[Rfam]
This 179-nucleotide RNA sequence from Methyloglobulus morosus belongs to the Rfam family "6S / SsrS RNA".
E. coli 6S RNA was the first non coding RNA to be sequenced, but its function was unknown until recently. It consists of 184 nucleotides that fold into an extended hairpin structure with a large single-stranded internal bulge. The 6S RNA specifically associates with RNA polymerase holoenzyme containing the sigma70 specificity factor.
It scores 85 bits against the family's covariance model.
The organism belongs to Methyloglobulus morosus, within Bacteria.
It is annotated as a non-coding RNA gene.

RNA sequence: UAUCUCCUGCGGUGUUCGAUGGUGUAUUGGGUGUUUCCUGAACCUAUUUUUACCCAGGGGGCAAAUACCGUUAAUGGUGUGCAUGCCCGUCUCGACGAGAAGCCUGAUUUAACGAGCCUGUCCCCACUUGAACUUUCGGUUCAAGGACGAAAAUACAUAACGGCACAGGCGGGAGAUGC
Numbered sequence: 001u002a003u004c005u006c007c008u009g010c011g012g013u014g015u016u017c018g019a020u021g022g023u024g025u026a027u028u029g030g031g032u033g034u035u036u037c038c039u040g041a042a043c044c045u046a047u048u049u050u051u052a053c054c055c056a057g058g059g060g061g062c063a064a065a066u067a068c069c070g071u072u073a074a075u076g077g078u079g080u081g082c083a084u085g086c087c088c089g090u091c092u093c094g095a096c097g098a099g100a101a102g103c104c105u106g107a108u109u110u111a112a113c114g115a116g117c118c119u120g121u122c123c124c125c126a127c128u129u130g131a132a133c134u135u136u137c138g139g140u141u142c143a144a145g146g147a148c149g150a151a152a153a154u155a156c157a158u159a160a161c162g163g164c165a166c167a168g169g170c171g172g173g174a175g176a177u178g179c
Stems, first nucleotide, its partner, number of pairs: 002177009012166004017162002035147003039143006057125003061121003066116001069114006081103002086099001088097003